[Rfam]
RNA: SAM riboswitch aptamer (S box leader)
RNA sequence: CUCUUAUUCAGAACCACUAGAUGGAAGGAAUCGAUGACGUGGUAGCAACCCUUGAAAAAGUAGGUGCUUUAUCCUCAGCGAAGGAAACUUCGAACGAUAAGAG
Numbered sequence: 001c002u003c004u005u006a007u008u009c010a011g012a013a014c015c016a017c018u019a020g021a022u023g024g025a026a027g028g029a030a031u032c033g034a035u036g037a038c039g040u041g042g043u044a045g046c047a048a049c050c051c052u053u054g055a056a057a058a059a060g061u062a063g064g065u066g067c068u069u070u071a072u073c074c075u076c077a078g079c080g081a082a083g084g085a086a087a088c089u090u091c092g093a094a095c096g097a098u099a100a101g102a103g
Base pairs, nucleotide, nucleotide: 001103002102003101004100005099006098007097008096013043014042015041016040017039020032021031022030028076044068045067046066047065049064050063051060052059053058079092080091081090082089083088